A member of the RNA family "Caenorhabditis snoRNA ceN80" from Caenorhabditis japonica, 131 nucleotides long.

RNA sequence: UGGCAUCGAAAAGGGACGGGUUAUCCGGCUGGAUUGUUCCGUAUAAUUUCGGUGCAAGAAAAUAGAGAGGCGCAGUGUUACUCUUCUUUACACACCCUGUAUCUGGAGAGUGUCAAGCGGUUCCCACAAUA
Numbered sequence: 001u002g003g004c005a006u007c008g009a010a011a012a013g014g015g016a017c018g019g020g021u022u023a024u025c026c027g028g029c030u031g032g033a034u035u036g037u038u039c040c041g042u043a044u045a046a047u048u049u050c051g052g053u054g055c056a057a058g059a060a061a062a063u064a065g066a067g068a069g070g071c072g073c074a075g076u077g078u079u080a081c082u083c084u085u086c087u088u089u090a091c092a093c094a095c096c097c098u099g100u101a102u103c104u105g106g107a108g109a110g111u112g113u114c115a116a117g118c119g120g121u122u123c124c125c126a127c128a129a130u131a
Base pairs, nucleotide, nucleotide: 003055004054005053006052007051008050009049010048011047016042017041018040019039020038024033025032026031065125067123068122069121071119072118073117076115077114079112080111081110082109083108084107085106086105089101090100091099092098

Description:
The match comes from Rfam's covariance-model search (139 bits). Its family is annotated with RNA processing and nucleolus in the Gene Ontology.